[Rfam]
Plastid-rps12 3UTR RNA: a 103-nucleotide sequence from Zanthoxylum simulans. By type it is a cis-regulatory element. The literature on the family includes a 2023 paper in Plant Commun by Richter et al., "Retrograde signaling in plants: A critical review focusing on the GUN pathway and beyond". Rfam's curators write: Plastid rpl20 is a non-coding RNA (ncRNA) recognised in plastids. It was found in the three prime untranslated region (3UTR) of rps12 gene, its 3UTR location sugest a role in transcript maduration. The organism belongs to Zanthoxylum, within Eukaryota. The family's consensus secondary structure was predicted with LocARNA. The sequence is in the family's curated seed alignment.
RNA sequence: GGUUUCCACCGGCGCAAAUUCAACCGCCUCAAAUUUCCAUUUAAGGUGAGAAAGAAUUCCACAUUGGUAACAAAUAGUUAUCCAUUAAGCGGGGGAAAUACUA
Number, nucleotide and partner (000 for none) at each position: 001g000002g000003u000004u000005u000006c000007c000008a000009c000010c000011g021012g020013c000014g000015c000016a000017a000018a000019u000020u012021c011022a000023a000024c000025c000026g000027c000028c000029u000030c000031a000032a000033a000034u000035u000036u000037c000038c000039a000040u000041u000042u000043a000044a000045g000046g000047u000048g000049a000050g000051a000052a000053a000054g000055a000056a000057u000058u000059c094060c093061a000062c091063a085064u084065u000066g082067g081068u080069a079070a078071c077072a000073a000074a000075u000076a000077g071078u070079u069080a068081u067082c066083c000084a064085u063086u000087a000088a000089g000090c000091g062092g000093g060094g059095g000096a000097a000098a000099u000100a000101c000102u000103a000